This 72-nucleotide sequence from Kluyveromyces lactis belongs to the Rfam family "tRNA". Taxonomically the source falls in Kluyveromyces (Eukaryota, Ascomycota, saccharomyceta, Saccharomycetales).
RNA sequence: GAGAAUAUUGUUUAAUGGUAAAACAGUUGCCUUUUAAGCAUCCCAUGUUUGGUUCGAUUCCAACUAUUCUUA
Numbered sequence: 001g002a003g004a005a006u007a008u009u010g011u012u013u014a015a016u017g018g019u020a021a022a023a024c025a026g027u028u029g030c031c032u033u034u035u036a037a038g039c040a041u042c043c044c045a046u047g048u049u050u051g052g053u054u055c056g057a058u059u060c061c062a063a064c065u066a067u068u069c070u071u072a
Base pairs, nucleotide, nucleotide: 001071002070003069004068005067006066007065010024011023012022013021026042028040029039030038049063050062051061052060